[Rfam]
RNA sequence: UUUCGACAGUCUGCGUUUGUUUUAUUGGUAGAUUAUUGACCUAUCAUAAGACACACGCGGCUAUUGAGG
Numbered sequence: 001u002u003u004c005g006a007c008a009g010u011c012u013g014c015g016u017u018u019g020u021u022u023u024a025u026u027g028g029u030a031g032a033u034u035a036u037u038g039a040c041c042u043a044u045c046a047u048a049a050g051a052c053a054c055a056c057g058c059g060g061c062u063a064u065u066g067a068g069g
Stems, first nucleotide, its partner, number of pairs: 001069006008062004013058003018053005026046005
RNA: mir-970 microRNA precursor family